[Rfam]
RNA sequence: AUUCAUCUUCGGGGCAGGGUGUAAUUCCCGACCGGCGGUAAUAAACGAUGUAAUCUCCGACCGUAAUGGAGGACAUUACAACAAUCGUUUCGAGCCCGCGAGCCGAAAUUUAUUUCGUGCAGGAUUUGGUGCAAUUCCAAAGCCGACAGUAUAGUCUGGAUGGGAGAAGGUGAAG
Numbered sequence: 001a002u003u004c005a006u007c008u009u010c011g012g013g014g015c016a017g018g019g020u021g022u023a024a025u026u027c028c029c030g031a032c033c034g035g036c037g038g039u040a041a042u043a044a045a046c047g048a049u050g051u052a053a054u055c056u057c058c059g060a061c062c063g064u065a066a067u068g069g070a071g072g073a074c075a076u077u078a079c080a081a082c083a084a085u086c087g088u089u090u091c092g093a094g095c096c097c098g099c100g101a102g103c104c105g106a107a108a109u110u111u112a113u114u115u116c117g118u119g120c121a122g123g124a125u126u127u128g129g130u131g132c133a134a135u136u137c138c139a140a141a142g143c144c145g146a147c148a149g150u151a152u153a154g155u156c157u158g159g160a161u162g163g164g165a166g167a168a169g170g171u172g173a174a175g
Stems, first nucleotide, its partner, number of pairs: 003173008017029003031155002033145002035099004104119001125141005147158003